[Rfam]
RNA sequence: UCGCGGCGCAGAGCUUAGCUAAUUGGUGAGCAUUGAUCCAUUAAAUAUACUGUUCACAGUGGCUAAGUUCAGCGUCUGCA
Dot-bracket structure: ..........((((((((((.....(((((((..................)))))))...))))))))))..........
The family of this 80-nucleotide RNA sequence from Pangasianodon hypophthalmus is "mir-27 microRNA precursor family". On this family, see Chen et al., Genes Dev 2005: "The developmental miRNA profiles of zebrafish as determined by small RNA cloning". Rfam 15.1 lists 1,440 matches to the family in 645 species. Taxonomically the source falls in Pangasianodon (Eukaryota, Gnathostomata, Neopterygii, Otomorpha). Pairs were carried over by alignment from the consensus structure, which was predicted with RNAalifold.